[Rfam]
RNA: mir-1 microRNA precursor family
Organism: Danio rerio
RNA sequence: AUUGAGACGACAUACUUCCUUAUAUCCCCAUAUUCAGAAUUAAUCUAUGGAAUGUAAGGAAGUGUGUGGCUUCAGU
Number, nucleotide and partner (000 for none) at each position: 001a000002u000003u000004g000005a000006g000007a000008c069009g000010a067011c066012a065013u064014a063015c062016u061017u060018c059019c058020u057021u056022a055023u054024a053025u052026c000027c000028c050029c049030a048031u047032a046033u000034u000035c000036a000037g000038a000039a000040u000041u000042a000043a000044u000045c000046u032047a031048u030049g029050g028051a000052a025053u024054g023055u022056a021057a020058g019059g018060a017061a016062g015063u014064g013065u012066g011067u010068g000069g008070c000071u000072u000073c000074a000075g000076u000